[Rfam]
RNA sequence: CUCUGCCCAGGCAAGGGUGGGGCAGGGCAAAAGGAG
Numbered sequence: 001c002u003c004u005g006c007c008c009a010g011g012c013a014a015g016g017g018u019g020g021g022g023c024a025g026g027g028c029a030a031a032a033g034g035a036g
Base pairs, nucleotide, nucleotide: 001027002026003025004024005023006022007021008020